[Rfam]
RNA sequence: CUAACGCUGCUGCCGUCCAGUUACAGACUCAAGCAAUGGGGACGGCUCGCAGAGAUCCUGGGAGAGGUAAGAUUCCUAUGG
Numbered sequence: 001c002u003a004a005c006g007c008u009g010c011u012g013c014c015g016u017c018c019a020g021u022u023a024c025a026g027a028c029u030c031a032a033g034c035a036a037u038g039g040g041g042a043c044g045g046c047u048c049g050c051a052g053a054g055a056u057c058c059u060g061g062g063a064g065a066g067g068u069a070a071g072a073u074u075c076c077u078a079u080g081g
Base pairs, nucleotide, nucleotide: 013045014044015043016042017041018040046064047063048062050060051059052058065077066076067075
RNA: pemK RNA